Shown here is a 70-nucleotide sequence from Brenthis ino, a member of the family "mir-87 microRNA precursor family". A search with the family's covariance model found it, with a score of 53 bits. For this family Rfam cites "Temporal regulation of microRNA expression in Drosophila melanogaster mediated by hormonal signals and broad-Complex gene activity" (Sempere et al., Dev Biol, 2003). Gene Ontology terms of the family: miRNA-mediated post-transcriptional gene silencing and RISC complex. Taxonomically the source falls in Brenthis (Eukaryota, Endopterygota, Lepidoptera, Heliconiinae).

RNA sequence: CACUGAUGGGCCUGAACUGUUGCUCUUACCUGUAUUUACUAGGUGAGCAAACUUUCAGGUGUGUUAGUGC
Numbered sequence: 001c002a003c004u005g006a007u008g009g010g011c012c013u014g015a016a017c018u019g020u021u022g023c024u025c026u027u028a029c030c031u032g033u034a035u036u037u038a039c040u041a042g043g044u045g046a047g048c049a050a051a052c053u054u055u056c057a058g059g060u061g062u063g064u065u066a067g068u069g070c
Stems, first nucleotide, its partner, number of pairs: 002068006010060006020050002023047003029043003